NiCo (Nickel/Cobalt) riboswitch aptamer: an 80-nucleotide RNA from Fumia xinanensis. Pairs were carried over by alignment from the consensus structure, which is taken from published work. A search with the family's covariance model found it, with a score of 41 bits.
[Rfam]
RNA sequence: UAUCCGCGGUCGGAUCAGGCGGCGGAACCUCCGCAUAGCCGGGCCUUUUGGCAGCAGACCAGCGCGUCUGUGGGACAGAG
Numbered sequence: 001u002a003u004c005c006g007c008g009g010u011c012g013g014a015u016c017a018g019g020c021g022g023c024g025g026a027a028c029c030u031c032c033g034c035a036u037a038g039c040c041g042g043g044c045c046u047u048u049u050g051g052c053a054g055c056a057g058a059c060c061a062g063c064g065c066g067u068c069u070g071u072g073g074g075a076c077a078g079a080g
Base pairs, nucleotide, nucleotide: 010079011078013076016074018040019039020038022034023033024032025031026030043052044051045050054071055070056069057068058067059066